[Rfam]
RNA sequence: UUUCGCAGCUUACAAACAGGGUGGCUACUCUAGGGUAGCCCACCCAUACUCGCGCUGUGGGGAAAGUCCCCGGAGCUUCCUCCUUUUUCCCUCUUUCUCACACUUGAAAUCCAACCCAACCCUUUCCAUCGCUCGUUCCGAUAUCCCAAACUCUUCGCUUGUUCCCCUUCUUUUGCCCCUCUACUUGCCCGCAUACCCUGCAUAUACCCCUCGAAUCACCAGGACCCUACUAGCCGGUUCAAGCUGUCCGACCUCGGUUGAAUACCGAUGCCGAUUUUGAUGGGCGGAGACGCUGGUCGGCCGGGAAAGCACCCGUACCUAAGCAUGCGGGGAAGGCUACCGGCGUCUCUACUAUGCCUAUCAGAUGAGGCGGAGGGAGACGGCUGGCGCGGAUAGCUCGGCGAACGACCUGGACCGAUUUCGAGGCGGUGCGUUCGCGCUUUCGGGGUAUUUCUGGGCCGGUAGGGGAUCAGGCGAGAGGAGGACGCAUAGAGUGUCGAGGUCGGAUCGAGGGACAUUGAGGGUGGAUCUCCAUCGGACGCUAUAAGGGCUGCUUGUGACUCUACGGUAUCCACGCCGGGGUCCGCUCUCUUGUUCUGA
Numbered sequence: 001u002u003u004c005g006c007a008g009c010u011u012a013c014a015a016a017c018a019g020g021g022u023g024g025c026u027a028c029u030c031u032a033g034g035g036u037a038g039c040c041c042a043c044c045c046a047u048a049c050u051c052g053c054g055c056u057g058u059g060g061g062g063a064a065a066g067u068c069c070c071c072g073g074a075g076c077u078u079c080c081u082c083c084u085u086u087u088u089c090c091c092u093c094u095u096u097c098u099c100a101c102a103c104u105u106g107a108a109a110u111c112c113a114a115c116c117c118a119a120c121c122c123u124u125u126c127c128a129u130c131g132c133u134c135g136u137u138c139c140g141a142u143a144u145c146c147c148a149a150a151c152u153c154u155u156c157g158c159u160u161g162u163u164c165c166c167c168u169u170c171u172u173u174u175g176c177c178c179c180u181c182u183a184c185u186u187g188c189c190c191g192c193a194u195a196c197c198c199u200g201c202a203u204a205u206a207c208c209c210c211u212c213g214a215a216u217c218a219c220c221a222g223g224a225c226c227c228u229a230c231u232a233g234c235c236g237g238u239u240c241a242a243g244c245u246g247u248c249c250g251a252c253c254u255c256g257g258u259u260g261a262a263u264a265c266c267g268a269u270g271c272c273g274a275u276u277u278u279g280a281u282g283g284g285c286g287g288a289g290a291c292g293c294u295g296g297u298c299g300g301c302c303g304g305g306a307a308a309g310c311a312c313c314c315g316u317a318c319c320u321a322a323g324c325a326u327g328c329g330g331g332g333a334a335g336g337c338u339a340c341c342g343g344c345g346u347c348u349c350u351a352c353u354a355u356g357c358c359u360a361u362c363a364g365a366u367g368a369g370g371c372g373g374a375g376g377g378a379g380a381c382g383g384c385u386g387g388c389g390c391g392g393a394u395a396g397c398u399c400g401g402c403g404a405a406c407g408a409c410c411u412g413g414a415c416c417g418a419u420u421u422c423g424a425g426g427c428g429g430u431g432c433g434u435u436c437g438c439g440c441u442u443u444c445g446g447g448g449u450a451u452u453u454c455u456g457g458g459c460c461g462g463u464a465g466g467g468g469a470u471c472a473g474g475c476g477a478g479a480g481g482a483g484g485a486c487g488c489a490u491a492g493a494g495u496g497u498c499g500a501g502g503u504c505g506g507a508u509c510g511a512g513g514g515a516c517a518u519u520g521a522g523g524g525u526g527g528a529u530c531u532c533c534a535u536c537g538g539a540c541g542c543u544a545u546a547a548g549g550g551c552u553g554c555u556u557g558u559g560a561c562u563c564u565a566c567g568g569u570a571u572c573c574a575c576g577c578c579g580g581g582g583u584c585c586g587c588u589c590u591c592u593u594g595u596u597c598u599g600a
Stems, first nucleotide, its partner, number of pairs: 003060007019045006
Shown here is a 600-nucleotide part of an RNA from Dioszegia hungarica, a member of the family "RNase MRP". A search with the family's covariance model found it, with a score of 64 bits. By type it is a ribozyme.